The record is a 148-nucleotide RNA sequence from Hermetia illucens, which matches "U11 spliceosomal RNA" in Rfam.
RNA sequence: AAAAAGGGUGCUCGCUACUACUCUCAAUAGCGCGUCGAAGUGCUUGGAUUUCCUGGUGCUUCGGUGGGGUAUGGCUAUCAAGACAUAUCCAGCACAUAAUUUUUGUGAACAAGGGGCUGUUGGCUGCUAUUUUCGCGCGGACGCUCCU
Numbered sequence: 001a002a003a004a005a006g007g008g009u010g011c012u013c014g015c016u017a018c019u020a021c022u023c024u025c026a027a028u029a030g031c032g033c034g035u036c037g038a039a040g041u042g043c044u045u046g047g048a049u050u051u052c053c054u055g056g057u058g059c060u061u062c063g064g065u066g067g068g069g070u071a072u073g074g075c076u077a078u079c080a081a082g083a084c085a086u087a088u089c090c091a092g093c094a095c096a097u098a099a100u101u102u103u104u105g106u107g108a109a110c111a112a113g114g115g116g117c118u119g120u121u122g123g124c125u126g127c128u129a130u131u132u133u134c135g136c137g138c139g140g141a142c143g144c145u146c147c148u
Base pairs, nucleotide, nucleotide: 008095009094010093011092012091013032014031015030016029017028033066034065035064036063037062038061039060040059041058042057043056044055067090068089069088070087071086072085073084114146115145116144117143119142120141121140123138126136127135129133

The organism belongs to Hermetia, within Eukaryota. The family's RNA type in Rfam is spliceosomal small nuclear RNA.